[Rfam]
RNA: UnaL2 LINE 3' element
Organism: Triplophysa tibetana
RNA sequence: AAUACAAUGCAAUGCAAGUUGCUUUGGAUAAAAGCAUCUGCAAAAUGCAUUAAU
Number, nucleotide and partner (000 for none) at each position: 001a000002a000003u000004a000005c000006a000007a000008u000009g000010c000011a000012a000013u043014g041015c040016a039017a000018g000019u000020u036021g035022c034023u033024u032025u031026g000027g000028a000029u000030a000031a025032a024033a023034g022035c021036a020037u000038c000039u016040g015041c014042a000043a013044a000045a000046u000047g000048c000049a000050u000051u000052a000053a000054u000